Rfam assigns this 75-nucleotide RNA sequence from Hymenochirus boettgeri to the family "mir-192/215 microRNA precursor family". Rfam links the family to the GO terms miRNA-mediated post-transcriptional gene silencing and RISC complex. A reference for the family is Ambros (2001), "microRNAs: tiny regulators with great potential", Cell. Taxonomically the source falls in Hymenochirus (Eukaryota, Euteleostomi, Anura, Pipoidea). Pairs were carried over by alignment from the consensus structure, which was predicted with PFOLD. Rfam describes the family as follows. This family represents the human microRNA (miRNA) precursors mir-192 and mir-215. It scores 65 bits against the family's covariance model.

[Rfam]
RNA sequence: UCAGGAGGAUGACCUAUAUAUUGACAGCCAGUUUUCAUUCAUUAUGCCUGUCAAUUCUGUAGGCCAAUAUUCUGA
Numbered sequence: 001u002c003a004g005g006a007g008g009a010u011g012a013c014c015u016a017u018a019u020a021u022u023g024a025c026a027g028c029c030a031g032u033u034u035u036c037a038u039u040c041a042u043u044a045u046g047c048c049u050g051u052c053a054a055u056u057c058u059g060u061a062g063g064c065c066a067a068u069a070u071u072c073u074g075a
Stems, first nucleotide, its partner, number of pairs: 001075006008068001010066002013063004020055008029046002